Source information:
A member of the RNA family "Rhizobiales sRNA Atu_At1" from Sinorhizobium sp. BG8, 107 nucleotides long. Rfam 15.1 lists 200 matches to the family in 177 species. Lineage of the source: Bacteria > Pseudomonadota > Alphaproteobacteria > Hyphomicrobiales > Sinorhizobium.

RNA sequence: AUGCGGACCGUGCCAACCGGACCCGACGGGGCGGAGAACAUGGGGAUUUUACCGGUUUCUCCCCAUGGCCAACGAAUAGGCAGGCGAGCUCCCUAACCGUCCGGUUC
Dot-bracket structure: .....((((..(.(.....).)..(((((...((((..(((((((...............)))))))(((........))).......))))....))))).)))).